[Rfam]
RNA sequence: AGUCAUAUGCUUGUCUCAAAGAUUAAGCCAUGCAUGUCUAAGUACAGACUUUCACACAGUGAAACCGCGAAUGGCUCAUUAGAUCGGUUAUUGUUCCUUAGAUCGUACACAGUUACUUGGAUAACUGUAGUAAUUCUAGAGCUAAUACAUGCAACCAAGCUCCGCCCUUACGGGGAAGAGCGCUUUUAUUAGAACAAAACCAAUCGGGCCGCAAGGUCCGUCUCAUUGGUGAAUCUGAAUAACUUUGGGCUGAUCGCAUGGCCUCGAGCCGGCGACGUAUCUUUCAAGUGUCCGCCCUAUCAACUGUCGACGGUCGGUGAUAUGCCUACCGUGGUACUUACGGGUAACGGGGAAUUAGGGUUCGAUUCCGGAGAGGGAGCAUGAGAAACGGCUACCACAUCCAAGGAAGGCAGCAGGCGCGCAAAUUACCCACUCCUGGCACGGGGAGGUAGUGACGAAAAAUAACAAUACGGGACUCUUUCGAGGCCUCGUAAUUGGAAUGAGUACACUUUAAAUCCUUUAACGAGGAUCUAUUGGAGGGCAAGUCUGGUGCCAGCAGCCGCGGUAAUUCCAGCUCCAAUAGCGUAUAUUAAAGUUGUU
Number, nucleotide and partner (000 for none) at each position: 001a591002g590003u589004c000005a588006u587007a586008u585009g584010c583011u582012u000013g000014u460015c000016u458017c457018a000019a000020a453021g420022a000023u000024u000025a000026a000027g418028c417029c416030a000031u415032g414033c413034a000035u000036g068037u067038c000039u000040a000041a000042g065043u064044a000045c000046a000047g000048a060049c059050u000051u000052u000053c000054a000055c000056a000057c000058a000059g049060u048061g000062a000063a000064a043065c042066c000067g037068c036069g000070a000071a000072u000073g000074g000075c373076u372077c371078a000079u000080u000081a000082g000083a000084u000085c294086g293087g292088u000089u000090a289091u288092u000093g000094u287095u286096c000097c000098u000099u000100a282101g281102a280103u279104c000105g000106u000107a000108c000109a000110c000111a000112g000113u000114u000115a000116c151117u000118u149119g148120g000121a000122u000123a000124a000125c141126u140127g000128u138129a137130g136131u000132a000133a000134u000135u000136c130137u129138a128139g000140a126141g125142c000143u000144a000145a000146u000147a000148c119149a118150u000151g116152c000153a000154a000155c000156c000157a000158a000159g181160c180161u179162c178163c000164g000165c000166c174167c173168u000169u000170a000171c000172g000173g167174g166175g000176a000177a000178g162179a161180g160181c159182g000183c000184u000185u000186u242187u241188a240189u239190u238191a000192g000193a000194a000195c000196a000197a000198a000199a230200c229201c228202a227203a000204u000205c000206g000207g000208g217209c216210c215211g000212c000213a000214a000215g210216g209217u208218c000219c000220g000221u000222c000223u000224c000225a000226u000227u202228g201229g200230u199231g000232a000233a000234u000235c000236u000237g000238a190239a189240u188241a187242a186243c000244u000245u000246u000247g000248g000249g000250c000251u000252g000253a000254u275255c274256g273257c272258a000259u271260g270261g269262c268263c000264u000265c000266g000267a000268g262269c261270c260271g259272g257273c256274g255275a254276c000277g000278u000279a103280u102281c101282u100283u000284u000285c000286a095287a094288g091289u090290g000291u000292c087293c086294g085295c000296c344297c343298u342299a000300u000301c000302a000303a335304c334305u333306g000307u000308c000309g000310a332311c331312g330313g329314u328315c000316g326317g325318u000319g000320a000321u000322a000323u000324g000325c317326c316327u000328a314329c313330c312331g311332u310333g305334g304335u303336a000337c000338u000339u000340a000341c000342g298343g297344g296345u000346a000347a000348c370349g369350g368351g367352g363353a362354a361355u360356u000357a000358g000359g000360g355361u354362u353363c352364g000365a000366u000367u351368c350369c349370g348371g077372a076373g075374a000375g396376g395377g000378a393379g392380c391381a000382u000383g000384a000385g000386a000387a000388a000389c000390g000391g380392c379393u378394a000395c376396c375397a000398c409399a000400u407401c406402c000403a000404a000405g000406g401407a400408a000409g398410g000411c000412a000413g033414c032415a031416g029417g028418c027419g000420c021421g000422c000423a000424a000425a000426u451427u000428a450429c449430c448431c000432a000433c000434u446435c445436c444437u443438g442439g000440c000441a000442c438443g437444g436445g435446g434447a000448g430449g429450u428451a426452g000453u020454g000455a000456c000457g017458a016459a000460a014461a000462a000463u000464a000465a000466c497467a496468a495469u493470a492471c491472g490473g489474g488475a000476c485477u484478c483479u000480u000481u000482c000483g478484a477485g476486g000487c000488c474489u473490c472491g471492u470493a469494a000495u468496u467497g466498g000499a000500a000501u000502g000503a000504g524505u523506a521507c000508a520509c000510u000511u000512u000513a000514a000515a000516u000517c000518c000519u000520u508521u506522a000523a505524c504525g000526a000527g000528g000529a000530u000531c000532u000533a000534u580535u579536g578537g577538a576539g575540g000541g000542c000543a000544a000545g000546u000547c574548u573549g572550g571551u000552g000553c000554c000555a000556g563557c562558a000559g000560c000561c000562g557563c556564g000565g000566u000567a000568a000569u000570u000571c550572c549573a548574g547575c539576u538577c537578c536579a535580a534581u000582a011583g010584c009585g008586u007587a006588u005589a003590u002591u001592a000593a000594a000595g000596u000597u000598g000599u000600u000
RNA: Eukaryotic small subunit ribosomal RNA, nucleotides 22 to 621